[Rfam]
RNA: MIR828 microRNA precursor family
RNA sequence: AUAAAGUUUCUUGCUCAAAUGAGUAUUCCAAACAACAGCUUGUGAAGCAAUGAUUACUGUCAUAGUCUCUGCAUGUGGAUUGUUGUUGAGAUGCUCAUUUGAGGAAGCAACCUUAA
Numbered sequence: 001a002u003a004a005a006g007u008u009u010c011u012u013g014c015u016c017a018a019a020u021g022a023g024u025a026u027u028c029c030a031a032a033c034a035a036c037a038g039c040u041u042g043u044g045a046a047g048c049a050a051u052g053a054u055u056a057c058u059g060u061c062a063u064a065g066u067c068u069c070u071g072c073a074u075g076u077g078g079a080u081u082g083u084u085g086u087u088g089a090g091a092u093g094c095u096c097a098u099u100u101g102a103g104g105a106a107g108c109a110a111c112c113u114u115a116a
Stems, first nucleotide, its partner, number of pairs: 004113001006111003010107003014103014029088002